[Rfam]
RNA sequence: GGGUCCGAUGGUGCGUGCUGUCGGAGGAAAACCCGGGUGGUCGGGCCGCCAUCCG
Numbered sequence: 001g002g003g004u005c006c007g008a009u010g011g012u013g014c015g016u017g018c019u020g021u022c023g024g025a026g027g028a029a030a031a032c033c034c035g036g037g038u039g040g041u042c043g044g045g046c047c048g049c050c051a052u053c054c055g
Stems, first nucleotide, its partner, number of pairs: 005024008034055004039050003
This 55-nucleotide sequence belongs to the Rfam family "nhaA-I RNA". The base pairs follow the family's consensus structure, which is taken from published work. About the family: Acidobacteria, Alphaproteobacteria, Betaproteobacteria and Gammaproteobacteria, Verrucomicrobia, cand. division NC10.